[Rfam]
This 157-nucleotide RNA from Pigmentiphaga aceris belongs to the Rfam family "FMN riboswitch aptamer (RFN element)". Rfam describes the family as follows. The RFN element is a highly conserved domain that is found frequently in the 5'-untranslated regions of prokaryotic mRNAs that encode for flavin mononucleotide (FMN) biosynthesis and transport proteins. It scores 105 bits against the family's covariance model. The family's consensus secondary structure is taken from published work.
RNA sequence: ACGCGUUCUCAGGGCGGGGUGCAAUUCCCCACCGGCGGUAAUGGCGAUUUUUUCGUCUAGCCCGCGAGCGCCCAUCGGCCAGGCAGGCGAUGGGGUCAGCAGAUUUCGGUGCGAUUCCGAAGCCGACGGUCAUAGUCCGGAUGAGAGAGAAACGCGG
Numbered sequence: 001a002c003g004c005g006u007u008c009u010c011a012g013g014g015c016g017g018g019g020u021g022c023a024a025u026u027c028c029c030c031a032c033c034g035g036c037g038g039u040a041a042u043g044g045c046g047a048u049u050u051u052u053u054c055g056u057c058u059a060g061c062c063c064g065c066g067a068g069c070g071c072c073c074a075u076c077g078g079c080c081a082g083g084c085a086g087g088c089g090a091u092g093g094g095g096u097c098a099g100c101a102g103a104u105u106u107c108g109g110u111g112c113g114a115u116u117c118c119g120a121a122g123c124c125g126a127c128g129g130u131c132a133u134a135g136u137c138c139g140g141a142u143g144a145g146a147g148a149g150a151a152a153c154g155c156g157g
Base pairs, nucleotide, nucleotide: 003155004154005153006152007150008149009148010147017029018028019027031136032135033125034124035065036064037063038062060123061122068100069099105121106120107119108118109117127139128138129137